[Rfam]
RNA sequence: GCACCAAAUCUUUCCCAGUCCUUACUGUGCAGUGUGGGCCUGGGGAUACAUGGUGCUGACAGCAACACAGAGCAAAUCCAGACAGACUCUUCAUGAGAACCUGUCUCUACACCUCUGCAACAAGU
Number, nucleotide and partner (000 for none) at each position: 001g056002c055003a054004c053005c052006a000007a000008a000009u000010c000011u000012u046013u045014c044015c043016c042017a041018g040019u000020c038021c037022u000023u000024a000025c000026u000027g000028u000029g000030c000031a000032g000033u000034g000035u000036g000037g021038g020039c000040c018041u017042g016043g015044g014045g013046a012047u000048a000049c000050a000051u000052g005053g004054u003055g002056c001057u000058g000059a000060c000061a000062g000063c000064a000065a000066c000067a000068c117069a116070g115071a114072g113073c000074a000075a000076a000077u000078c000079c000080a106081g105082a104083c103084a102085g101086a000087c097088u096089c095090u000091u000092c000093a000094u000095g089096a088097g087098a000099a000100c000101c085102u084103g083104u082105c081106u080107c000108u000109a000110c000111a000112c000113c072114u071115c070116u069117g068118c000119a000120a000121c000122a000123a000124g000125u000
RNA: Small nucleolar RNA SNORA55